[Rfam]
RNA sequence: GGCUUAUCUGCAAGCCUAAAACAGCAGGACGGCAGGAGCUGGCGACCUCCUAAAACGCCUA
Numbered sequence: 001g002g003c004u005u006a007u008c009u010g011c012a013a014g015c016c017u018a019a020a021a022c023a024g025c026a027g028g029a030c031g032g033c034a035g036g037a038g039c040u041g042g043c044g045a046c047c048u049c050c051u052a053a054a055a056c057g058c059c060u061a
Base pairs, nucleotide, nucleotide: 001016002015003014004013008027009026010025011024035050036049037048038047
Source information
Shown here is a 61-nucleotide RNA, a member of the family "GP20-b RNA". Rfam's curators put it in the seed alignment. The family's consensus secondary structure is taken from published work. The family's RNA type in Rfam is cis-regulatory element.